[Rfam]
RNA sequence: GGAGUGGCUCGGGUGAUCGCGGCAGGUUCGACCUGUCGAGGAAAGUCCGGGCUGCACAGGGCAGAACGCCGGAUAACGUCCGGUGGGGGUGACCCCGGGACAGUGCCACAGAAAACAGACCGCCGGCCGUUAUAUGGCCGGUAAGGGUGAAACGGUGCGGUAAGAGCGCACCGCCCGGUCCGGUAACGGGCCGGGGCAGGGUAAACCCCGUUCGCAGCAAGGCCAAAUAGGGAAGCGCCAAACGUGGCCCGCGUUUGCUUCCGGGUAGGCUGCUCGAGCCUGUCAGUAAUGGCAGGCCCAGAUGAAUGAUCAUCACCGUUGCGGCAACGCAAUGGAACAGAACCCGGCUUACAGAGCCACUCCGCAU
Numbered sequence: 001g002g003a004g005u006g007g008c009u010c011g012g013g014u015g016a017u018c019g020c021g022g023c024a025g026g027u028u029c030g031a032c033c034u035g036u037c038g039a040g041g042a043a044a045g046u047c048c049g050g051g052c053u054g055c056a057c058a059g060g061g062c063a064g065a066a067c068g069c070c071g072g073a074u075a076a077c078g079u080c081c082g083g084u085g086g087g088g089g090u091g092a093c094c095c096c097g098g099g100a101c102a103g104u105g106c107c108a109c110a111g112a113a114a115a116c117a118g119a120c121c122g123c124c125g126g127c128c129g130u131u132a133u134a135u136g137g138c139c140g141g142u143a144a145g146g147g148u149g150a151a152a153c154g155g156u157g158c159g160g161u162a163a164g165a166g167c168g169c170a171c172c173g174c175c176c177g178g179u180c181c182g183g184u185a186a187c188g189g190g191c192c193g194g195g196g197c198a199g200g201g202u203a204a205a206c207c208c209c210g211u212u213c214g215c216a217g218c219a220a221g222g223c224c225a226a227a228u229a230g231g232g233a234a235g236c237g238c239c240a241a242a243c244g245u246g247g248c249c250c251g252c253g254u255u256u257g258c259u260u261c262c263g264g265g266u267a268g269g270c271u272g273c274u275c276g277a278g279c280c281u282g283u284c285a286g287u288a289a290u291g292g293c294a295g296g297c298c299c300a301g302a303u304g305a306a307u308g309a310u311c312a313u314c315a316c317c318g319u320u321g322c323g324g325c326a327a328c329g330c331a332a333u334g335g336a337a338c339a340g341a342a343c344c345c346g347g348c349u350u351a352c353a354g355a356g357c358c359a360c361u362c363c364g365c366a367u
Stems, first nucleotide, its partner, number of pairs: 001363010011352001012314007020038008043350003047347005052217004059250004064213005069083005084097005098208002103206002105202003120146002122142009154172006173197001174195003178191005221271004231262006241255005278297008
This 367-nucleotide RNA from Mariprofundus erugo belongs to the Rfam family "Bacterial RNase P class A". Taxonomically the source falls in Mariprofundus (Bacteria, Pseudomonadati, Pseudomonadota, Mariprofundaceae). The match comes from Rfam's covariance-model search (335 bits).